[Rfam]
RNA sequence: AUACUCUGGUUUCUCUUCAGCUUGCAUAAAUUGUUCACCUUUUACUAAAGAUUUCCAUGGAAAGAAACAAAGAAAAAAAAAGAGAAGUAUAAUUACCAUUUGGAGCUUUACAAGUCUAGCC
Dot-bracket structure: ...(((..((((((.((((........(((((.((...........)).)))))...)))).)))))).............)))..................(.(((..(....)..))))
This 121-nucleotide RNA from Cnephaeus nilssonii belongs to the Rfam family "U5 spliceosomal RNA". The family's RNA type in Rfam is spliceosomal small nuclear RNA. About the family: U5 RNA is a component of both types of known spliceosome.